[Rfam]
RNA sequence: AUUAAUAUUUAUUUCCGAGCUAUUUUCUUCUAAGGGUAAUAUAACCUAUGAAGAAUAGCCAACGGGUGCAGGAAGAAAUUCUUGUGCCUCCCGAUUUGGAAAGGAAAUAAGGUAGUAUUAUAA
Numbered sequence: 001a002u003u004a005a006u007a008u009u010u011a012u013u014u015c016c017g018a019g020c021u022a023u024u025u026u027c028u029u030c031u032a033a034g035g036g037u038a039a040u041a042u043a044a045c046c047u048a049u050g051a052a053g054a055a056u057a058g059c060c061a062a063c064g065g066g067u068g069c070a071g072g073a074a075g076a077a078a079u080u081c082u083u084g085u086g087c088c089u090c091c092c093g094a095u096u097u098g099g100a101a102a103g104g105a106a107a108u109a110a111g112g113u114a115g116u117a118u119u120a121u122a123a
Base pairs, nucleotide, nucleotide: 003117004116006114011108012107013106014105015104016103019059020058021057022056023055024054025053028052029051030050034047035046036045037044064089065088066087067086068085069084070083071082072081073080074079090099091098
The record is a 123-nucleotide sequence from Alkaliphilus peptidifermentans, which matches "Molybdenum/Tungsten riboswitch aptamer (Moco RNA motif)" in Rfam. A search with the family's covariance model found it, with a score of 78 bits. A reference for the family is Regulski et al. (2008), "in molybdenum cofactor and tungsten cofactor metabolism", Mol Microbiol. Taxonomically the source falls in Alkaliphilus peptidifermentans (Bacteria, Bacillati, Bacillota, Alkaliphilus).